[Rfam]
The record is a 54-nucleotide sequence from Bagarius yarrelli, which matches "UnaL2 LINE 3' element" in Rfam.
RNA sequence: AACAAAGAAUAUUGUAAGUCGCUCUGGAUAAGGGCGUCUGCCAAAUGCUGCAAA
Numbered sequence: 001a002a003c004a005a006a007g008a009a010u011a012u013u014g015u016a017a018g019u020c021g022c023u024c025u026g027g028a029u030a031a032g033g034g035c036g037u038c039u040g041c042c043a044a045a046u047g048c049u050g051c052a053a054a
Stems, first nucleotide, its partner, number of pairs: 013043001014041003020036006
By type it is a cis-regulatory element. It scores 55 bits against the family's covariance model. Rfam links the family to the GO term transposition, RNA-mediated.